[Rfam]
RNA: Ascomycota telomerase RNA, nucleotides 1133 to 1291
RNA sequence: AUCCCCGCUGGUUUCGCUUGAGAUCAGCAACUUCCUGUAGGUCUUCCAGAAAUGGAGGUCCCUGCAGAUGAGAGCGCGGUUUUUAUGGACGUCUUUUGUCCGCGCGGAACGCCCUCCUUGAGCCCCCAGGCGGAGAGGAAACAAAAACCAGUUCCAGGA
Numbered sequence: 001a002u003c004c005c006c007g008c009u010g011g012u013u014u015c016g017c018u019u020g021a022g023a024u025c026a027g028c029a030a031c032u033u034c035c036u037g038u039a040g041g042u043c044u045u046c047c048a049g050a051a052a053u054g055g056a057g058g059u060c061c062c063u064g065c066a067g068a069u070g071a072g073a074g075c076g077c078g079g080u081u082u083u084u085a086u087g088g089a090c091g092u093c094u095u096u097u098g099u100c101c102g103c104g105c106g107g108a109a110c111g112c113c114c115u116c117c118u119u120g121a122g123c124c125c126c127c128a129g130g131c132g133g134a135g136a137g138g139a140a141a142c143a144a145a146a147a148c149c150a151g152u153u154c155c156a157g158g159a
Stems, first nucleotide, its partner, number of pairs: 007028004013022003033071002035067007043058004048053001088153003091148002094146006112138002114135004122131003